[Rfam]
RNA sequence: UGAAACCUUGUUAUCACUAUGGGGCCUUUGAUAAGACCCAGUGACCAAUUUUUGGCACCCUUGCGAGAGCAAGGGCA
Numbered sequence: 001u002g003a004a005a006c007c008u009u010g011u012u013a014u015c016a017c018u019a020u021g022g023g024g025c026c027u028u029u030g031a032u033a034a035g036a037c038c039c040a041g042u043g044a045c046c047a048a049u050u051u052u053u054g055g056c057a058c059c060c061u062u063g064c065g066a067g068a069g070c071a072a073g074g075g076c077a
Stems, first nucleotide, its partner, number of pairs: 022039003026035003058075007
RNA: SmY spliceosomal RNA